[Rfam]
RNA sequence: ACCUUUUAUUCGCUGAAUCAUUUAUUGAGCGGGGGAACCAUAUUCGAUAGGGAACUUCCUAUCUUGGGGUGAGUCUUACUUGAUGUAAGAGGGGAUACUCUCAAUUCCUAAUCCGACAGCUAACCUCGUAAGCGUUACAUGUAUCUUUU
Number, nucleotide and partner (000 for none) at each position: 001a000002c000003c000004u000005u000006u000007u000008a000009u000010u000011c134012g133013c132014u131015g000016a000017a000018u028019c027020a026021u000022u000023u000024a000025u000026u020027g019028a018029g129030c128031g127032g126033g125034g124035g000036a000037a000038c000039c066040a065041u000042a000043u000044u000045c000046g000047a000048u000049a000050g000051g000052g000053a000054a000055c000056u000057u000058c000059c000060u000061a000062u000063c000064u000065u040066g039067g114068g113069g112070u000071g000072a000073g000074u000075c089076u088077u087078a086079c000080u000081u000082g000083a000084u000085g000086u078087a077088a076089g075090a000091g000092g108093g107094g106095a105096u000097a000098c000099u000100c000101u000102c000103a000104a000105u095106u094107c093108c092109u000110a000111a000112u069113c068114c067115g000116a000117c000118a000119g000120c000121u000122a000123a000124c034125c033126u032127c031128g030129u029130a000131a014132g013133c012134g011135u000136u000137a000138c000139a000140u000141g000142u000143a000144u000145c000146u000147u000148u000149u000
c-di-AMP riboswitch aptamer (ydaO/yuaA leader): a 149-nucleotide RNA sequence from Metabacillus lacus. The base pairs follow the family's consensus structure. This family represents a conserved RNA structure found upstream of the ydaO and yuaA genes in Bacillus subtilis and related genes in other bacteria. The source organism's lineage runs through Bacteria, Bacilli, Caryophanales, Bacillaceae and Metabacillus. It scores 89 bits against the family's covariance model. The family has 106 seed sequences and 7,607 matches in Rfam 15.1.